mir-515 microRNA precursor family: an 87-nucleotide sequence from Cebus imitator.
RNA sequence: UCUCAAACAGUAAUCCUCUAAACGGGUACACUUUCUAUUUCUUUCAGACAAAGAAAGUGCGCCCGUCUAGAGGGUCACAGUCUGAGA
Numbered sequence: 001u002c003u004c005a006a007a008c009a010g011u012a013a014u015c016c017u018c019u020a021a022a023c024g025g026g027u028a029c030a031c032u033u034u035c036u037a038u039u040u041c042u043u044u045c046a047g048a049c050a051a052a053g054a055a056a057g058u059g060c061g062c063c064c065g066u067c068u069a070g071a072g073g074g075u076c077a078c079a080g081u082c083u084g085a086g087a
Base pairs, nucleotide, nucleotide: 001087002086003085004084005083007081008080010078011077013075014074016072017071018070020068022066023065024064025063026062027061029059030058031057032056033055034054035053038052039051
The literature on the family includes a 2005 paper in Nat Genet by Bentwich et al., "Identification of hundreds of conserved and nonconserved human microRNAs".
Gene Ontology terms of the family: miRNA-mediated post-transcriptional gene silencing and RISC complex.